[Rfam]
RNA sequence: CUUUCCCGGAGGGAGAGCGGCCUGGGGCGAGGGUGGUUUGUGUUGUGGAGCGAUUCCGCUUGGAAGGCGCGUGUGGGCUGAGUGAGUGGACGCGCGAAUGUGUGAGUGUGCGCAUGGGGCGUGCAAGGCGAGUGCGUGUGCCCGUCCCUGAGCCCCUCCCCCCGCCUACACCUUGAUCUUAUUUGAUCGGGUUGUGACCCUAGCCCCGCCGGGCCGAUCCGAGAUGAAAAGUUACCCUCCUGCGAAGCUCCUUCAUCGGGGCGCUGUGCAGCGAGGCCCCUUGGGCGGCGGUAACGCCGCGGUCCCGGAGCCGGUCUUACGGGGCCCGGCGCUCAGAAGUGAUGAAUUGAUCAGAUAGACGAGGCCGGGCUUGUCCCGGGCCAAUGAUUAUCGAGGCGAUUCUGAUCUGA
Dot-bracket structure: ...................................................(.((((((.((.....)).)))..............(.(((......))).)..((((((((.((............)).)))))..)))........))).)...........................(((..((((.(((.(..(((.((...)).))))))).)))).....))).........................((.(((.(((..((.(((..(((((......)).)))..))).)))))))).))((((((((....))).)))))...((((......((((((.............((((.((......)).))))..............))))))...)))).
The record is a 410-nucleotide RNA from Callorhinus ursinus, which matches "Small Cajal body-specific RNA 2" in Rfam. The match comes from Rfam's covariance-model search (400 bits). Rfam 15.1 lists 612 matches to the family in 498 species. On this family, see Tycowski et al., Curr Biol 2004: "Guide RNAs with 5' caps and novel box C/D snoRNA-like domains for modification of snRNAs in metazoa".